[Rfam]
RNA: Alphaproteobacteria transfer-messenger RNA
RNA sequence: CCCCUUCACAUUUCCUUCGUCCUCACUUAUAUAUCCCCUGCUGGCUUCGGCCAGCUAUGGUGAUAAACGGACGAUGCAAUAAGCCCAUUGGACCCGGGGGCGGUACCCGGCGCCUCCACCAGAAACCGCCGGCUCUUAAGGGCGGCUUCUGAUGGGGGCGAAAUAGGAUCGACAAGGGUGUAAAGAUCGCUCUUUUGCCCGGCAUUGUACCACCGUUAUCGGGCUAACUCAGUAGUUGCAAACGACAACUAUGCGGAAGCUCGUCUCGCUGCUUAAUCGCAGUGUGACACUUCAAAUCAAGCCCUAGUGGUUCGCACCUCUAGGCGGGGCUCGGAGGCGCCUGGCAACAGAAGCCUCCACU
Number, nucleotide and partner (000 for none) at each position: 001c000002c000003c000004c000005u000006u000007c000008a000009c000010a000011u000012u000013u000014c000015c000016u000017u000018c000019g000020u000021c000022c000023u000024c000025a000026c000027u000028u000029a000030u000031a000032u000033a000034u000035c000036c000037c000038c000039u000040g055041c054042u053043g052044g051045c000046u000047u000048c000049g000050g000051c044052c043053a042054g041055c040056u000057a000058u000059g199060g198061u197062g196063a195064u000065a000066a000067a000068c000069g192070g191071a000072c189073g188074a187075u186076g000077c000078a000079a000080u000081a000082a000083g000084c178085c177086c176087a000088u175089u174090g173091g000092a000093c000094c110095c109096g108097g107098g106099g000100g000101c000102g000103g000104u000105a000106c098107c097108c096109g095110g094111c160112g159113c158114c157115u156116c155117c154118a000119c000120c000121a000122g000123a000124a000125a000126c000127c000128g000129c000130c000131g000132g000133c000134u000135c000136u000137u000138a000139a000140g000141g000142g000143c000144g000145g000146c000147u000148u000149c000150u000151g000152a000153u000154g117155g116156g115157g114158g113159c112160g111161a000162a000163a000164u000165a000166g000167g000168a000169u000170c000171g000172a000173c090174a089175a088176g086177g085178g084179u000180g000181u000182a000183a000184a000185g000186a075187u074188c073189g072190c000191u070192c069193u000194u000195u063196u062197g061198c060199c059200c215201g214202g213203c000204a000205u226206u000207g224208u000209a000210c222211c221212a000213c202214c201215g200216u000217u000218a000219u000220c000221g211222g210223g000224c207225u000226a205227a000228c000229u000230c000231a000232g000233u000234a000235g000236u000237u000238g000239c000240a000241a000242a000243c000244g000245a000246c000247a000248a000249c000250u000251a000252u000253g000254c000255g000256g000257a000258a000259g000260c000261u000262c000263g000264u000265c000266u000267c000268g000269c000270u000271g000272c000273u000274u000275a000276a000277u000278c000279g000280c000281a000282g000283u000284g000285u000286g000287a000288c000289a000290c000291u000292u000293c000294a000295a000296a000297u000298c000299a000300a000301g000302c000303c000304c000305u000306a000307g000308u000309g000310g000311u000312u000313c000314g000315c000316a000317c000318c000319u000320c000321u000322a000323g000324g000325c000326g000327g342328g341329g340330c339331u000332c000333g358334g357335a356336g355337g354338c353339g330340c329341c328342u327343g000344g000345c000346a000347a000348c000349a000350g000351a000352a000353g338354c337355c336356u335357c334358c333359a000360c000361u000